[Rfam]
RNA: Guanidine-I riboswitch aptamer
Nucleotides: 108
Stems, first nucleotide, its partner, number of pairs: 007057004011052002015046002020043002022040001023037006059081008083103001085106001089101003
Number, partner (000 for none) and nucleotide at each position: 001000c002000g003000a004000g005000u006000u007057g008056g009055g010054u011052g012051c013000u014000a015046g016045g017000g018000u019000u020043c021042c022040g023037g024036c025035g026034u027033c028032g029000u030000c031000a032028u033027g034026a035025c036024g037023u038000g039000u040022c041000u042021g043020g044000u045016c046015c047000g048000a049000g050000a051012g052011c053000c054010a055009c056008c057007c058000g059081c060080c061079g062078g063077c064076g065075c066074g067000g068000a069000g070000c071000a072000a073000u074066c075065g076064u077063g078062u079061c080060g081059g082000a083103c084000a085106c086000g087000g088000c089101g090100g091099g092000a093000c094000a095000a096000a097000a098000g099091c100090c101089c102000g103083g104000g105000a106085g107000a108000c